The record is a 116-nucleotide RNA from Oscillibacter sp. CAG:155, which matches "THF (Tetrahydrofolate) riboswitch aptamer" in Rfam. Gene Ontology term of the family: tetrahydrofolate metabolic process. NCBI's taxonomy places the organism under Bacteria, Bacillati, Clostridia, Oscillospiraceae, Oscillibacter. The match comes from Rfam's covariance-model search (75 bits). Rfam describes the family as follows. Tetrahydrofolate (THF) riboswitch was first reported for Ames et al. as an RNA motif in 5' untranslated (5'-UTR)regions of folate transport and biosynthesis genes in Firmicutes genomes.

[Rfam]
Nucleotides: 116
Base pairs, nucleotide, nucleotide: 001116002115003114004113005112010103011102012101013100014099015098016097017096018095019094020092021091029060030059032058033057034056035055036054037053038052039051043109044108045107047105064089065088066087
Number, partner (000 for none) and nucleotide at each position: 001116g002115g003114c004113a005112g006000a007000g008000u009000a010103g011102g012101a013100a014099c015098a016097u017096a018095c019094g020092u021091g022000a023000a024000a025000a026000a027000g028000a029060g030059u031000g032058c033057c034056g035055g036054a037053a038052a039051a040000a041000c042000g043109g044108g045107g046000a047105g048000u049000u050000g051039u052038u053037u054036u055035c056034c057033g058032g059030a060029c061000g062000a063000a064089g065088g066087g067000g068000c069000g070000g071000g072000c073000c074000g075000u076000a077000u078000c079000g080000g081000c082000c083000g084000a085000u086000g087066u088065c089064c090000g091021c092020a093000g094019u095018g096017u097016g098015u099014g100013u101012u102011c103010c104000g105047c106000a107045u108044c109043c110000c111000g112005c113004u114003g115002c116001c